RNA sequence: AAUGAAUGAUGACAAAAUGUUUCGGUCCCAGAUGACUUGAAAUGAUUUCAGUUUCCCAUAUUCUGACAUU
Numbered sequence: 001a002a003u004g005a006a007u008g009a010u011g012a013c014a015a016a017a018u019g020u021u022u023c024g025g026u027c028c029c030a031g032a033u034g035a036c037u038u039g040a041a042a043u044g045a046u047u048u049c050a051g052u053u054u055c056c057c058a059u060a061u062u063c064u065g066a067c068a069u070u
Base pairs, nucleotide, nucleotide: 001070002069003068004067
RNA: Small nucleolar RNA SNORD73
Organism: Struthio camelus